[Rfam]
RNA sequence: AUUUGUCUUCGAGGCGGGGUGUGAUUCCCCACCGGCAGUAUAGUCUGCAAGCGGCCCCCUGGGGCUGCACGAACCGGUGCGAUCCCGGUACCGACAGUAUAGUCUGGAUGAGAGAAGGCGUGU
Numbered sequence: 001a002u003u004u005g006u007c008u009u010c011g012a013g014g015c016g017g018g019g020u021g022u023g024a025u026u027c028c029c030c031a032c033c034g035g036c037a038g039u040a041u042a043g044u045c046u047g048c049a050a051g052c053g054g055c056c057c058c059c060u061g062g063g064g065c066u067g068c069a070c071g072a073a074c075c076g077g078u079g080c081g082a083u084c085c086c087g088g089u090a091c092c093g094a095c096a097g098u099a100u101a102g103u104c105u106g107g108a109u110g111a112g113a114g115a116a117g118g119c120g121u122g123u
Stems, first nucleotide, its partner, number of pairs: 004120007017029003031103002033093002035048004043091002073089005095106003

A member of the RNA family "FMN riboswitch aptamer (RFN element)" from Vescimonas fastidiosa, 123 nucleotides long.